[Rfam]
Rfam assigns this 135-nucleotide sequence from Synaphobranchus kaupii to the family "Small nucleolar RNA SNORA84". Rfam classes the family as an H/ACA-box small nucleolar RNA. Rfam links the family to the GO terms nucleolus and RNA processing.
RNA sequence: GCCUGGUGGUUCCUGGAGACAGCUGGACUGUGCUGAUCUGUGGGUUUUGAUAGACAGGCAGACAUUAACUCUGUGAUUUUAUGCAUGGGGCCUGUGUUUCUAAGCAGGCUCCAUAGCCCGGUUGCAGAGACAAUU
Numbered sequence: 001g002c003c004u005g006g007u008g009g010u011u012c013c014u015g016g017a018g019a020c021a022g023c024u025g026g027a028c029u030g031u032g033c034u035g036a037u038c039u040g041u042g043g044g045u046u047u048u049g050a051u052a053g054a055c056a057g058g059c060a061g062a063c064a065u066u067a068a069c070u071c072u073g074u075g076a077u078u079u080u081a082u083g084c085a086u087g088g089g090g091c092c093u094g095u096g097u098u099u100c101u102a103a104g105c106a107g108g109c110u111c112c113a114u115a116g117c118c119c120g121g122u123u124g125c126a127g128a129g130a131c132a133a134u135u
Base pairs, nucleotide, nucleotide: 001059002058003057004056007049008048012044013043014042015041017039020035021034022033023032071127073125074124075123076122077121078120083117084116085114086113087112088111090109091108092107093106094105095104